[Rfam]
RNA: Caenorhabditis snoRNA ceN41
RNA sequence: AUGCAACCAGCACUCUUCGCCGCGCUUCUAUAGUGCGGCAAGAUUUAUCGGUUGCUAGAAUGAAAAAGGGAAGUUCGAAGACCGACAGGAUAUGUUCAUUUGUCCUUUCGGUUCAAAACUAUCACCACAAUU
Numbered sequence: 001a002u003g004c005a006a007c008c009a010g011c012a013c014u015c016u017u018c019g020c021c022g023c024g025c026u027u028c029u030a031u032a033g034u035g036c037g038g039c040a041a042g043a044u045u046u047a048u049c050g051g052u053u054g055c056u057a058g059a060a061u062g063a064a065a066a067a068g069g070g071a072a073g074u075u076c077g078a079a080g081a082c083c084g085a086c087a088g089g090a091u092a093u094g095u096u097c098a099u100u101u102g103u104c105c106u107u108u109c110g111g112u113u114c115a116a117a118a119c120u121a122u123c124a125c126c127a128c129a130a131u132u
Base pairs, nucleotide, nucleotide: 003055004054005053006052007051008050016042017041020038021037068126069125070123071122072120073119074118075117080113081112082111083110084109085108087106088105094101
Dot-bracket structure: ..((((((.......((..((...............))..)).......))))))............((((((((....((((((.((.....(......)...)).))))))...)))).)).))......